Background:
This 50-nucleotide sequence from Escherichia coli belongs to the Rfam family "algC RNA". It is annotated as a cis-regulatory element. Lineage of the source: Bacteria > Pseudomonadota > Gammaproteobacteria > Escherichia > Escherichia coli. The family's consensus secondary structure is taken from published work.
RNA sequence: ACAAAAUUGGCCGCUUCGGUCAUGGCCGAGUAUUGCCUGAAAAAGGGUAA
Numbered sequence: 001a002c003a004a005a006a007u008u009g010g011c012c013g014c015u016u017c018g019g020u021c022a023u024g025g026c027c028g029a030g031u032a033u034u035g036c037c038u039g040a041a042a043a044a045g046g047g048u049a050a
Stems, first nucleotide, its partner, number of pairs: 009021005